A member of the RNA family "Mason-Pfizer monkey virus packaging signal" from Molossus molossus, 267 nucleotides long. The literature on the family includes a 1995 paper in J Virol by Harrison et al., "Secondary structure model of the Mason-Pfizer monkey virus 5' leader sequence: identification of a structural motif common to a variety of retroviruses". This family represents a group of sequences that are related to the Mason-Pfizer monkey virus (MPMV) packaging signal.
[Rfam]
RNA sequence: UGGCUCCCAAUGUGGGGCUCCAGAACAGGGGAUACAGUGAAGGACGCCGUUCGAGUGGUCGGCAGAAAGGAAAAGAAAAGAGGGAACAACAUGGGAACCUGCUGCGUCUGCACCCCUCAGGUAAGUGAAUGGUGAUUAUGGGUCAAGAAAUGAGCCAAUGUAAGAUGUCCAUUGAAGGACUAGGAAAGGCUCUCAAGGCACGAGGAGUAAAGGUAAAUAUUAAGCAUUUGUGUCAGUAUUUUGAUUAUAUUAAGGAAGUUUGCCCUU
Numbered sequence: 001u002g003g004c005u006c007c008c009a010a011u012g013u014g015g016g017g018c019u020c021c022a023g024a025a026c027a028g029g030g031g032a033u034a035c036a037g038u039g040a041a042g043g044a045c046g047c048c049g050u051u052c053g054a055g056u057g058g059u060c061g062g063c064a065g066a067a068a069g070g071a072a073a074a075g076a077a078a079a080g081a082g083g084g085a086a087c088a089a090c091a092u093g094g095g096a097a098c099c100u101g102c103u104g105c106g107u108c109u110g111c112a113c114c115c116c117u118c119a120g121g122u123a124a125g126u127g128a129a130u131g132g133u134g135a136u137u138a139u140g141g142g143u144c145a146a147g148a149a150a151u152g153a154g155c156c157a158a159u160g161u162a163a164g165a166u167g168u169c170c171a172u173u174g175a176a177g178g179a180c181u182a183g184g185a186a187a188g189g190c191u192c193u194c195a196a197g198g199c200a201c202g203a204g205g206a207g208u209a210a211a212g213g214u215a216a217a218u219a220u221u222a223a224g225c226a227u228u229u230g231u232g233u234c235a236g237u238a239u240u241u242u243g244a245u246u247a248u249a250u251u252a253a254g255g256a257a258g259u260u261u262g263c264c265c266u267u
Stems, first nucleotide, its partner, number of pairs: 006031003012026002039047001080118003083114002087110002090106001092104003126145003130142001133140002152193001154190003201243005207237002211229004252267004